[Rfam]
RNA: Streptomyces RNA 1601
RNA sequence: AACGACCGGCUGGACACAUGUGUGCCCGGCCCGCAAGUGGAGGCUCCGAUCUCCCACCUGACCGCCCUCCGGGACGGCAGGUCACCGGUCAGACGGCAGCCAUCGUUCCGUACGGACGAUGGGGCCGUCCGAUGCGCCCCGUGAUGGUAUGCGGUGGUGUUCCGGUAGUACCUGGAGCCCCGCCUGUGUCCCGUCCGGGGCAUUUUCU
Dot-bracket structure: ...((((((..((............))((((..((.((((((........)).)))).)).((((((...))).)))..)))).)))))).(((((...((((((((.......))))))))..)))))......((((((((.....(.(((((((.(((((..........))))).))))).)).)..))..)))))).......
Numbered sequence: 001a002a003c004g005a006c007c008g009g010c011u012g013g014a015c016a017c018a019u020g021u022g023u024g025c026c027c028g029g030c031c032c033g034c035a036a037g038u039g040g041a042g043g044c045u046c047c048g049a050u051c052u053c054c055c056a057c058c059u060g061a062c063c064g065c066c067c068u069c070c071g072g073g074a075c076g077g078c079a080g081g082u083c084a085c086c087g088g089u090c091a092g093a094c095g096g097c098a099g100c101c102a103u104c105g106u107u108c109c110g111u112a113c114g115g116a117c118g119a120u121g122g123g124g125c126c127g128u129c130c131g132a133u134g135c136g137c138c139c140c141g142u143g144a145u146g147g148u149a150u151g152c153g154g155u156g157g158u159g160u161u162c163c164g165g166u167a168g169u170a171c172c173u174g175g176a177g178c179c180c181c182g183c184c185u186g187u188g189u190c191c192c193g194u195c196c197g198g199g200g201c202a203u204u205u206u207c208u
Stems, first nucleotide, its partner, number of pairs: 004090006012027002028083004034060002037057004041052002062077003065073003092129005100122008136201006142193002149189001151187002153184005159178005